[Rfam]
RNA: tRNA
Organism: Enterospora canceri
RNA sequence: GACAAGAUGGCCGAGCGGUCUAAGGCGCUACGUUCAGGUCGUAGUCUUCAUUAUGAAGGCGCGGGUUCGAAUCCCGUUCUUGUUA
Numbered sequence: 001g002a003c004a005a006g007a008u009g010g011c012c013g014a015g016c017g018g019u020c021u022a023a024g025g026c027g028c029u030a031c032g033u034u035c036a037g038g039u040c041g042u043a044g045u046c047u048u049c050a051u052u053a054u055g056a057a058g059g060c061g062c063g064g065g066u067u068c069g070a071a072u073c074c075c076g077u078u079c080u081u082g083u084u085a
Stems, first nucleotide, its partner, number of pairs: 001084007010026003028044005061077005